[Rfam]
RNA sequence: ACCUCGUGGCCUGGUCUCUGCUAUUUGAGAUGAGUUCCAUCGUGGAGGUGAGGACGUGCCUCGUGGU
Numbered sequence: 001a002c003c004u005c006g007u008g009g010c011c012u013g014g015u016c017u018c019u020g021c022u023a024u025u026u027g028a029g030a031u032g033a034g035u036u037c038c039a040u041c042g043u044g045g046a047g048g049u050g051a052g053g054a055c056g057u058g059c060c061u062c063g064u065g066g067u
Stems, first nucleotide, its partner, number of pairs: 002066002005063002008060003014055004019050004024046004029041004
The family of this 67-nucleotide sequence from Microcebus murinus is "mir-1204 microRNA precursor family". Its family is annotated with RISC complex and miRNA-mediated post-transcriptional gene silencing in the Gene Ontology. A search with the family's covariance model found it, with a score of 82 bits. The organism belongs to Microcebus, within Eukaryota.